[Rfam]
RNA: mir-393 microRNA precursor family
RNA sequence: GGUGGAGAGUUCCAAAGGGAUCGCAUUGAUCUAAUUCAUGUCCUUCAUUCCUGCAUUUACAUGCUGGUUUUGGACCUUUUUUCCCGGCUUGGAUCAUGCGAUCCCUUAGGAAUUUUCCAU
Numbered sequence: 001g002g003u004g005g006a007g008a009g010u011u012c013c014a015a016a017g018g019g020a021u022c023g024c025a026u027u028g029a030u031c032u033a034a035u036u037c038a039u040g041u042c043c044u045u046c047a048u049u050c051c052u053g054c055a056u057u058u059a060c061a062u063g064c065u066g067g068u069u070u071u072g073g074a075c076c077u078u079u080u081u082u083c084c085c086g087g088c089u090u091g092g093a094u095c096a097u098g099c100g101a102u103c104c105c106u107u108a109g110g111a112a113u114u115u116u117c118c119a120u
Stems, first nucleotide, its partner, number of pairs: 002120005008114006015107007023099004028095005
Dot-bracket structure: .(((((.((((((.(((((((.((((.(((((..........................................................))))))))).))))))).)))))).)))))